RNA sequence: AGUAUAAUACAAAGAGUGCCGUAGACAGUAGGUGACAAUAGUCGUAACGUGGAACUACCUACCGAGGAUACAUUUGAUUUGUAUUUUUCACCCUGUCUGCCCGACAGGGUUUUUUUAUACGGCUU
Numbered sequence: 001a002g003u004a005u006a007a008u009a010c011a012a013a014g015a016g017u018g019c020c021g022u023a024g025a026c027a028g029u030a031g032g033u034g035a036c037a038a039u040a041g042u043c044g045u046a047a048c049g050u051g052g053a054a055c056u057a058c059c060u061a062c063c064g065a066g067g068a069u070a071c072a073u074u075u076g077a078u079u080u081g082u083a084u085u086u087u088u089c090a091c092c093c094u095g096u097c098u099g100c101c102c103g104a105c106a107g108g109g110u111u112u113u114u115u116u117a118u119a120c121g122g123c124u125u
Stems, first nucleotide, its partner, number of pairs: 028062006034043003090110008
The family of this 125-nucleotide RNA from Eubacterium sp. CAG:274 is "Ribosomal protein L10 leader". The organism belongs to Eubacterium, within Bacteria. By type it is a cis-regulatory leader. Rfam's curators write: This family is a putative r-protein leader autoregulatory structure found in B. subtilis and other low-GC Gram-positive bacteria. It is located in the 5' untranslated regions of mRNAs encoding ribosomal proteins L10 and L12 (rplJ-rplL). A Rho-independent transcription terminator structure that is probably involved in regulation is included at the 3' end. The base pairs follow the family's consensus structure, which was predicted with CMfinder.